[Rfam]
RNA sequence: GCCUUGAAGCAAUGUUGACCUUACGAAUCGUGUCAGGUUCGGAAGAAAGCAGCACUAAGUUCGGAUUGGCAUGUGCUUCAAGUUAUU
Dot-bracket structure: ...(((((((.((((((.((..((.....((((....(((....)))....))))...))..))..)))))))..))))))......
Numbered sequence: 001g002c003c004u005u006g007a008a009g010c011a012a013u014g015u016u017g018a019c020c021u022u023a024c025g026a027a028u029c030g031u032g033u034c035a036g037g038u039u040c041g042g043a044a045g046a047a048a049g050c051a052g053c054a055c056u057a058a059g060u061u062c063g064g065a066u067u068g069g070c071a072u073g074u075g076c077u078u079c080a081a082g083u084u085a086u087u
Stems, first nucleotide, its partner, number of pairs: 004081006010073001012072006019064002023060002030055004038047003
Bacterial small signal recognition particle RNA: an 87-nucleotide RNA from Ligilactobacillus ubinensis.
The literature on the family includes a 2003 paper in Nucleic Acids Res by Rosenblad et al., "SRPDB: Signal Recognition Particle Database".
Clan: SRP clan.
The family's RNA type in Rfam is non-coding RNA gene.
NCBI's taxonomy places the organism under Bacteria, Bacillota, Lactobacillales, Lactobacillaceae, Ligilactobacillus.